[Rfam]
Source information
This 118-nucleotide sequence from Methylacidimicrobium cyclopophantes belongs to the Rfam family "SAM riboswitch aptamer (S box leader)". Taxonomically the source falls in Methylacidimicrobium (Bacteria, Pseudomonadati, Verrucomicrobiota). A search with the family's covariance model found it, with a score of 81 bits.
RNA sequence: CUCUUAUCGAGAGCGGCGGAGGGAUCUGGCCCUACGAAACCGCGGCAACCGGGGAGAGGCUUCGGCCGCUCCCGACAGGUGCCAACCCCAGCUCCGGGAACCCGGGGAAGGAUGAGAG
Numbered sequence: 001c002u003c004u005u006a007u008c009g010a011g012a013g014c015g016g017c018g019g020a021g022g023g024a025u026c027u028g029g030c031c032c033u034a035c036g037a038a039a040c041c042g043c044g045g046c047a048a049c050c051g052g053g054g055a056g057a058g059g060c061u062u063c064g065g066c067c068g069c070u071c072c073c074g075a076c077a078g079g080u081g082c083c084a085a086c087c088c089c090a091g092c093u094c095c096g097g098g099a100a101c102c103c104g105g106g107g108a109a110g111g112a113u114g115a116g117a118g
Stems, first nucleotide, its partner, number of pairs: 001118008013043004021032003026091004044083004049079002053073002087110001092107006
Dot-bracket structure: ((((((((....((((....(((..[[[[))).......))))((((.((..((.................))....))))))...(]]]]((((((....))))))..)))))))))